[Rfam]
RNA sequence: GAAUGUUACAGCUGUUUUAGAAAAUUUGUCUAGUAGACUUUCUGGGAGGUCUUUACCAGAAAGCCUCC
Dot-bracket structure: ...................................(.((((((....(((....))))))))).)...
Numbered sequence: 001g002a003a004u005g006u007u008a009c010a011g012c013u014g015u016u017u018u019a020g021a022a023a024a025u026u027u028g029u030c031u032a033g034u035a036g037a038c039u040u041u042c043u044g045g046g047a048g049g050u051c052u053u054u055a056c057c058a059g060a061a062a063g064c065c066u067c068c
Stems, first nucleotide, its partner, number of pairs: 036065001038063006048057003